[Rfam]
The record is a 110-nucleotide sequence from Hermetia illucens, which matches "mir-282 microRNA precursor family" in Rfam. The family has 21 seed sequences and 136 matches in Rfam 15.1. Taxonomically the source falls in Hermetia (Eukaryota, Ecdysozoa, Mandibulata, Insecta). Rfam links the family to the GO terms miRNA-mediated post-transcriptional gene silencing and RISC complex. For this family Rfam cites "Direct sequencing and expression analysis of a large number of miRNAs in Aedes aegypti and a multi-species survey of novel mosquito miRNAs" (Li et al., BMC Genomics, 2009).
RNA sequence: AUCAAGGAUAAAUCUAGCCUCUACUAGGCUUUGUCUGUUGAUAUUUCAUUUCAUAAAAAUAUUUUUUGAGAUCAGACAUAGCCUGAAAGAGGUUAGGUGUACCUUGAUUU
Numbered sequence: 001a002u003c004a005a006g007g008a009u010a011a012a013u014c015u016a017g018c019c020u021c022u023a024c025u026a027g028g029c030u031u032u033g034u035c036u037g038u039u040g041a042u043a044u045u046u047c048a049u050u051u052c053a054u055a056a057a058a059a060u061a062u063u064u065u066u067u068g069a070g071a072u073c074a075g076a077c078a079u080a081g082c083c084u085g086a087a088a089g090a091g092g093u094u095a096g097g098u099g100u101a102c103c104u105u106g107a108u109u110u
Base pairs, nucleotide, nucleotide: 012098013097014096015095016094017093018092019091020090027083028082029081030080032078033077034076035075036074
Dot-bracket structure: ...........(((((((((......((((.(((((.....................................))))).))))......)))))))))............